[Rfam]
RNA: SAM riboswitch aptamer (S box leader)
Organism: Succiniclasticum ruminis
RNA sequence: AGCUCAUCACGAGCGGUGGAGGGAACUGGCCCAGUGAAGCCGCAGCAACCAUUGCAGUCGCAGGAUUGUCAAACGGUGCUAAGUCCUUACGAGAAAUCGCAAGAUGAGAU
Numbered sequence: 001a002g003c004u005c006a007u008c009a010c011g012a013g014c015g016g017u018g019g020a021g022g023g024a025a026c027u028g029g030c031c032c033a034g035u036g037a038a039g040c041c042g043c044a045g046c047a048a049c050c051a052u053u054g055c056a057g058u059c060g061c062a063g064g065a066u067u068g069u070c071a072a073a074c075g076g077u078g079c080u081a082a083g084u085c086c087u088u089a090c091g092a093g094a095a096a097u098c099g100c101a102a103g104a105u106g107a108g109a110u
Base pairs, nucleotide, nucleotide: 001110003108004107005106006105007104008103013043014042015041016040017039021032022031023030028086029085044080045079046078047077049076050075052071054069055068056067057066058065084102090099091098092097